[Rfam]
The family of this 104-nucleotide RNA from Mycolicibacterium llatzerense is "mraW RNA". The family's RNA type in Rfam is cis-regulatory element. NCBI's taxonomy places the organism under Bacteria, Actinomycetota, Actinomycetes, Mycobacterium, Mycobacterium (subgen. Mycolicibacterium).
RNA sequence: GCAGGCCCGUGCAGCGUGGCCUCUGUCCGAACCGGCCCUGGCGUACUUCCCCAACGUCAGGUCCGCGAACUCGGACAGAGACCUCGCUGCGGGGGCCGCACAAA
Numbered sequence: 001g002c003a004g005g006c007c008c009g010u011g012c013a014g015c016g017u018g019g020c021c022u023c024u025g026u027c028c029g030a031a032c033c034g035g036c037c038c039u040g041g042c043g044u045a046c047u048u049c050c051c052c053a054a055c056g057u058c059a060g061g062u063c064c065g066c067g068a069a070c071u072c073g074g075a076c077a078g079a080g081a082c083c084u085c086g087c088u089g090c091g092g093g094g095g096c097c098g099c100a101c102a103a104a
Base pairs, nucleotide, nucleotide: 010091011090012089013088014087015086016085018083019082021080022079023078024077025076026075027074028073029072030071032067033065034064035063037061038060039059040058041057042056043055044054